Overview: PyrR binding site: a 115-nucleotide RNA sequence from Bacillus sp. J14TS2. This family represents the PyrR binding site and terminator structure. A search with the family's covariance model found it, with a score of 59 bits. The base pairs follow the family's consensus structure, which is taken from published work. It is annotated as a cis-regulatory element. The literature on the family includes a 2001 paper in Nucleic Acids Res by Bonner et al., "Molecular recognition of pyr mRNA by the Bacillus subtilis attenuation regulatory protein PyrR".
RNA sequence: AAUCCCUUUUAAAAGACAGUCCAGAGAGACUGACAAAGGGAGGUUAAAACAGGAGCGAUUUCUGCCUGCUUCUUUUUGUACCCUCUUUGUCUGGAUUUGGACAGAGAGUUUUUUU
Numbered sequence: 001a002a003u004c005c006c007u008u009u010u011a012a013a014a015g016a017c018a019g020u021c022c023a024g025a026g027a028g029a030c031u032g033a034c035a036a037a038g039g040g041a042g043g044u045u046a047a048a049a050c051a052g053g054a055g056c057g058a059u060u061u062c063u064g065c066c067u068g069c070u071u072c073u074u075u076u077u078g079u080a081c082c083c084u085c086u087u088u089g090u091c092u093g094g095a096u097u098u099g100g101a102c103a104g105a106g107a108g109u110u111u112u113u114u115u
Base pairs, nucleotide, nucleotide: 003041004040005039006038007037008036009035017032018031019030020029021028046077047076048075049074052071053070080111083108084107085106086105087104088103089102090101091100092099093098